[Rfam]
RNA: Small nucleolar RNA U2-19
Organism: Cervus elaphus
RNA sequence: UAUCUAUGGUUUAAUCUGAGCAUCAGAAGACCUUUUAGUCUACCUGAUACAUGAUCUCUAUAGUUCUGAGA
Numbered sequence: 001u002a003u004c005u006a007u008g009g010u011u012u013a014a015u016c017u018g019a020g021c022a023u024c025a026g027a028a029g030a031c032c033u034u035u036u037a038g039u040c041u042a043c044c045u046g047a048u049a050c051a052u053g054a055u056c057u058c059u060a061u062a063g064u065u066c067u068g069a070g071a
Stems, first nucleotide, its partner, number of pairs: 020050001022048003028041004